[Rfam]
RNA sequence: UUCCAGGACAUACUGAUGAGAAUGUCAAAGAUGCAGUUGGGGUCCUCA
Numbered sequence: 001u002u003c004c005a006g007g008a009c010a011u012a013c014u015g016a017u018g019a020g021a022a023u024g025u026c027a028a029a030g031a032u033g034c035a036g037u038u039g040g041g042g043u044c045c046u047c048a
Stems, first nucleotide, its partner, number of pairs: 002041005018047003022043002

The record is a 48-nucleotide RNA, which matches "Pseudoknot of influenza A virus gene" in Rfam. It is annotated as a cis-regulatory element. The sequence is in the family's curated seed alignment.